Nucleotides: 075
Stems, first nucleotide, its partner, number of pairs: 010026004016066003020063003046056003
Number, partner (000 for none) and nucleotide at each position: 001000a002000u003000u004000a005000a006000a007000u008000a009000c010026g011025g012024g013023a014000a015000u016066g017065a018064g019000u020063g021062u022061c023013u024012c025011c026010c027000u028000a029000a030000g031000a032000u033000u034000u035000u036000u037000u038000c039000u040000u041000a042000a043000a044000c045000c046056g047055c048054u049000a050000a051000u052000c053000a054048a055047g056046c057000u058000g059000a060000u061022g062021a063020c064018u065017u066016c067000u068000a069000c070000a071000a072000a073000u074000u075000u
This 75-nucleotide sequence from Enterococcus hermanniensis belongs to the Rfam family "Fluoride riboswitch aptamer (crcB RNA motif)".
A search with the family's covariance model found it, with a score of 44 bits.
Lineage of the source: Bacteria > Bacillati > Bacillota > Bacilli > Enterococcus.
The family's consensus secondary structure is taken from published work.